[Rfam]
RNA sequence: GGUACCUUUAAUUCAGUCCAGAGAGACUGGCAAGGUGGCGCAGAGUUGACCAAUAUCCGGGUUCGCAUAUUCGACAUGAACAUGUUCGGCAAGUUCGGUAAUGUUGCCGCGCCUUGAGCAUGUCUAUGAUUGUGCGCCUGUUGAUAUCUCACACUGACUGUAACCUCCUUGCGAAUACGCAAGGAGGUUUUUUAUG
Numbered sequence: 001g002g003u004a005c006c007u008u009u010a011a012u013u014c015a016g017u018c019c020a021g022a023g024a025g026a027c028u029g030g031c032a033a034g035g036u037g038g039c040g041c042a043g044a045g046u047u048g049a050c051c052a053a054u055a056u057c058c059g060g061g062u063u064c065g066c067a068u069a070u071u072c073g074a075c076a077u078g079a080a081c082a083u084g085u086u087c088g089g090c091a092a093g094u095u096c097g098g099u100a101a102u103g104u105u106g107c108c109g110c111g112c113c114u115u116g117a118g119c120a121u122g123u124c125u126a127u128g129a130u131u132g133u134g135c136g137c138c139u140g141u142u143g144a145u146a147u148c149u150c151a152c153a154c155u156g157a158c159u160g161u162a163a164c165c166u167c168c169u170u171g172c173g174a175a176u177a178c179g180c181a182a183g184g185a186g187g188u189u190u191u192u193u194a195u196g
Base pairs, nucleotide, nucleotide: 003037004036005035006034007033008032013030014029015028016027017026018025047076048075050073052071053070054069055068056067058065059064160191162189163188164187165186166185167184168183169182170181171180172179173178
Rfam assigns this 196-nucleotide RNA from Cohnella terricola to the family "PyrR binding site". About the family: This family represents the PyrR binding site and terminator structure. This RNA structure is found upstream of a variety of genes involved in pyrimidine biosynthesis and transport. The alignment also includes a portion of the antiterminator structure. The base pairs follow the family's consensus structure, which is taken from published work.